[Rfam]
The record is a 43-nucleotide sequence from Trichonephila inaurata, which matches "ES036 (CssrF) sRNA" in Rfam. The organism belongs to Trichonephila inaurata, within Eukaryota. Pairs were carried over by alignment from the consensus structure, which was predicted with RNAfold. Rfam describes the family as follows. Differentially expressed under several chemical stress conditions. Also identified in Shigella as CssrF.
RNA sequence: AAAUUCAUGCAAAUUCAAAACAUUGUAAAAAAUACAUAUGCCU
Numbered sequence: 001a002a003a004u005u006c007a008u009g010c011a012a013a014u015u016c017a018a019a020a021c022a023u024u025g026u027a028a029a030a031a032a033u034a035c036a037u038a039u040g041c042c043u
Base pairs, nucleotide, nucleotide: 004031005030008027009026010025011024012023